Annotation
This 260-nucleotide part of an RNA from Methanothrix harundinacea belongs to the Rfam family "Archaeal large subunit ribosomal RNA". A search with the family's covariance model found it, with a score of 2936 bits. NCBI's taxonomy places the organism under Archaea, Methanobacteriati, Methanomicrobia, Methanotrichaceae, Methanothrix harundinacea.

[Rfam]
RNA sequence: GAGUGCAUUUGAGUGGCGAGGCUAAUCCGUUCAACGGAGAAGCCGGAGCGAAAGCGACAAGCGCGCAUCUUCGGAAAGGCGCGACGUAUACAAGUGCGUGGAGUCACUUGGAUGCUACCCGAAGCCGGGCGAUCUAGGCGUGGGCAGGUUGAAGCGUGGCGAAAGCUGCGUGGAGGACCGUUAGCGGUGUUGAUAUGCAAAUCACUCGCGUGACCUGUGUCUAGGGGUGAAAGUCCAAUCGAGCCCGGGAAUAGCUGGUU
Numbered sequence: 001g002a003g004u005g006c007a008u009u010u011g012a013g014u015g016g017c018g019a020g021g022c023u024a025a026u027c028c029g030u031u032c033a034a035c036g037g038a039g040a041a042g043c044c045g046g047a048g049c050g051a052a053a054g055c056g057a058c059a060a061g062c063g064c065g066c067a068u069c070u071u072c073g074g075a076a077a078g079g080c081g082c083g084a085c086g087u088a089u090a091c092a093a094g095u096g097c098g099u100g101g102a103g104u105c106a107c108u109u110g111g112a113u114g115c116u117a118c119c120c121g122a123a124g125c126c127g128g129g130c131g132a133u134c135u136a137g138g139c140g141u142g143g144g145c146a147g148g149u150u151g152a153a154g155c156g157u158g159g160c161g162a163a164a165g166c167u168g169c170g171u172g173g174a175g176g177a178c179c180g181u182u183a184g185c186g187g188u189g190u191u192g193a194u195a196u197g198c199a200a201a202u203c204a205c206u207c208g209c210g211u212g213a214c215c216u217g218u219g220u221c222u223a224g225g226g227g228u229g230a231a232a233g234u235c236c237a238a239u240c241g242a243g244c245c246c247g248g249g250a251a252u253a254g255c256u257g258g259u260u
Stems, first nucleotide, its partner, number of pairs: 005115013020044004026038004048055002061082004068075002085098004118258002121255001125248006134224011145212001147179004154171007184209004189205002192203002226236002
Dot-bracket structure: ....(((((((((((((..((((..((((.....))))..))))...((....)).....((((...((....))...))))..((((......))))....)))))))))))))..((.(...((((((...((((((((((((.((((...(((((((....)))))))....))))....((((.((.((........))))))))..).))))))))))).((.......))......))))))......).))..